[Rfam]
RNA: tRNA
Organism: Flavipsychrobacter stenotrophus
Nucleotides: 072
Stems, first nucleotide, its partner, number of pairs: 001071007010025003027043005048064005
Number, partner (000 for none) and nucleotide at each position: 001071g002070g003069c004068g005067u006066g007065u008000u009000g010025g011024u012023c013000a014000a015000u016000c017000g018000g019000u020000u021000a022000a023012g024011a025010c026000g027043c028042c029041u030040c031039c032000c033000u034000u035000u036000c037000a038000c039031g040030g041029a042028g043027g044000a045000a046000u047000g048064a049063c050062g051061g052060g053000u054000u055000c056000g057000a058000c059000u060052c061051c062050c063049g064048u065007a066006c067005a068004u069003g070002c071001u072000a